[Rfam]
RNA sequence: UGGUCUGGCUCUGUGUGGAAGACUAGUGAUUUUGUUGUUAUGAUUUAUAAAGGUGACAACAAAUCAUAGCCUGCCAUACAGCACAGAUCU
Numbered sequence: 001u002g003g004u005c006u007g008g009c010u011c012u013g014u015g016u017g018g019a020a021g022a023c024u025a026g027u028g029a030u031u032u033u034g035u036u037g038u039u040a041u042g043a044u045u046u047a048u049a050a051a052g053g054u055g056a057c058a059a060c061a062a063a064u065c066a067u068a069g070c071c072u073g074c075c076a077u078a079c080a081g082c083a084c085a086g087a088u089c090u
Stems, first nucleotide, its partner, number of pairs: 002089005010083001011081008020072002023069002026067007034060006
Rfam assigns this 90-nucleotide RNA from Gallus gallus to the family "mir-7 microRNA precursor family". The family's consensus secondary structure was predicted with PFOLD. NCBI's taxonomy places the organism under Eukaryota, Sauria, Archelosauria, Dinosauria, Gallus. This family represents the microRNA (miRNA) precursor mir-7. The literature on the family includes a 2001 paper in Science by Lagos-Quintana et al., "Identification of novel genes coding for small expressed RNAs".